[Rfam]
RNA sequence: UCUGUGUGGGGAUGAAUCCCUUAUCUGGAGACGGUUGGAUGAAUCUUGCGGAUAUGGGACUGAGCACAGGC
Numbered sequence: 001u002c003u004g005u006g007u008g009g010g011g012a013u014g015a016a017u018c019c020c021u022u023a024u025c026u027g028g029a030g031a032c033g034g035u036u037g038g039a040u041g042a043a044u045c046u047u048g049c050g051g052a053u054a055u056g057g058g059a060c061u062g063a064g065c066a067c068a069g070g071c
Base pairs, nucleotide, nucleotide: 001070002069003068004067005066
A member of the RNA family "Small nucleolar RNA SNORD99" from Xenopus tropicalis, 71 nucleotides long. Rfam classes the family as a C/D-box small nucleolar RNA. The family has 23 seed sequences and 673 matches in Rfam 15.1. Lineage of the source: Eukaryota > Eumetazoa > Bilateria > Chordata > Silurana. Its family is annotated with nucleolus and RNA processing in the Gene Ontology. For this family Rfam cites "Purified box C/D snoRNPs are able to reproduce site-specific 2'-O-methylation of target RNA in vitro" (Galardi et al., Mol Cell Biol, 2002). The family is grouped with related families in Rfam's "SNORD58 clan".